Description: Shown here is a 106-nucleotide RNA from Populus trichocarpa, a member of the family "Small nucleolar RNA snoR99". The family's consensus secondary structure was predicted with WAR. Rfam links the family to the GO terms RNA processing and nucleolus. The match comes from Rfam's covariance-model search (58 bits). By type it is an H/ACA-box small nucleolar RNA.

[Rfam]
RNA sequence: GUGCUUCAGGGAUUAACAAGUCCUUUAAAAGUAAUCAUCACCCAUCCAAUUCCCCAUUUCAGAUGUCUUUUGGAUUUCUUGCUGAACAAUAGAAGAUGGAAAAUGC
Number, nucleotide and partner (000 for none) at each position: 001g000002u000003g000004c000005u000006u000007c000008a000009g000010g000011g000012a000013u000014u000015a000016a000017c000018a000019a000020g000021u000022c000023c000024u000025u000026u000027a000028a000029a000030a000031g000032u000033a000034a000035u000036c000037a000038u000039c000040a000041c000042c099043c098044a097045u096046c095047c000048a000049a000050u000051u000052c000053c000054c000055c000056a000057u000058u086059u085060c084061a083062g082063a000064u000065g079066u000067c000068u000069u000070u000071u000072g000073g000074a000075u000076u000077u000078c000079u065080u000081g000082c062083u061084g060085a059086a058087c000088a000089a000090u000091a000092g000093a000094a000095g046096a045097u044098g043099g042100a000101a000102a000103a000104u000105g000106c000